[Rfam]
RNA sequence: UUUUAACUUCGAGUUUCGGACGAAGCCGAACCAUCGCUUAUUAACUGUGCGCGCUCGCGCACCAAUUCAACAGUCUCCAAAAUUGAUAUUUUGUUCGACUGUUGAAUUUUAAG
Number, nucleotide and partner (000 for none) at each position: 001u000002u000003u000004u000005a000006a000007c000008u000009u000010c000011g035012a034013g032014u000015u030016u029017c028018g027019g026020a000021c000022g000023a000024a000025g000026c019027c018028g017029a016030a015031c000032c013033a000034u012035c011036g000037c000038u000039u000040a000041u000042u000043a000044a000045c000046u000047g062048u061049g060050c059051g058052c057053g000054c000055u000056c000057g052058c051059g050060c049061a048062c047063c000064a000065a107066u106067u105068c104069a103070a102071c101072a100073g099074u098075c097076u000077c000078c093079a092080a091081a090082a089083u088084u000085g000086a000087u000088a083089u082090u081091u080092u079093g078094u000095u000096c000097g075098a074099c073100u072101g071102u070103u069104g068105a067106a066107u065108u000109u000110u000111a000112a000113g000

TD-1 RNA: a 113-nucleotide RNA from Treponema sp. Marseille-Q4132. Lineage of the source: Bacteria > Pseudomonadati > Spirochaetota > Treponemataceae > Treponema. The literature on the family includes a 2007 paper in Nucleic Acids Res by Weinberg et al., "Identification of 22 candidate structured RNAs in bacteria using the CMfinder comparative genomics pipeline". It scores 69 bits against the family's covariance model. The family is grouped with related families in Rfam's "TD (Treponema denticola) motifs".